[Rfam]
RNA sequence: AAGUUGUGUGACAUGCCGUUUGGUGAUAAACUCUGAUAUUAUAUUUAGUAAUAAAGUGAUUUUGGGAAACGGGGUGUUACAGGUUU
Numbered sequence: 001a002a003g004u005u006g007u008g009u010g011a012c013a014u015g016c017c018g019u020u021u022g023g024u025g026a027u028a029a030a031c032u033c034u035g036a037u038a039u040u041a042u043a044u045u046u047a048g049u050a051a052u053a054a055a056g057u058g059a060u061u062u063u064g065g066g067a068a069a070c071g072g073g074g075u076g077u078u079a080c081a082g083g084u085u086u
Base pairs, nucleotide, nucleotide: 002086003085005083007081008080009079010078011077012076013075014074016072017071018070019069020068